[Rfam]
A member of the RNA family "MIR8643 microRNA precursor family" from Gossypium arboreum, 149 nucleotides long. The base pairs follow the family's consensus structure, which was predicted with RNAalifold. NCBI's taxonomy places the organism under Eukaryota, Streptophyta, Magnoliopsida, eudicotyledons, Gossypium.
RNA sequence: AUUUCUUUUAACAUAUUAAGAAGUCGAAUUGGUAGUGAAAAAAGAAGUAGGAAGUCGACUAUCAUCAUUGCUUAUAACCAAAACCCAUAAACCCAUACCAUGCUUCUUUCUUCACUGCCAAUUCGACUUCCUAGUAUGUUAAAAGAAAU
Numbered sequence: 001a002u003u004u005c006u007u008u009u010a011a012c013a014u015a016u017u018a019a020g021a022a023g024u025c026g027a028a029u030u031g032g033u034a035g036u037g038a039a040a041a042a043a044g045a046a047g048u049a050g051g052a053a054g055u056c057g058a059c060u061a062u063c064a065u066c067a068u069u070g071c072u073u074a075u076a077a078c079c080a081a082a083a084c085c086c087a088u089a090a091a092c093c094c095a096u097a098c099c100a101u102g103c104u105u106c107u108u109u110c111u112u113c114a115c116u117g118c119c120a121a122u123u124c125g126a127c128u129u130c131c132u133a134g135u136a137u138g139u140u141a142a143a144a145g146a147a148a149u
Stems, first nucleotide, its partner, number of pairs: 004146015020130012033117007041109006048102002051099001057094001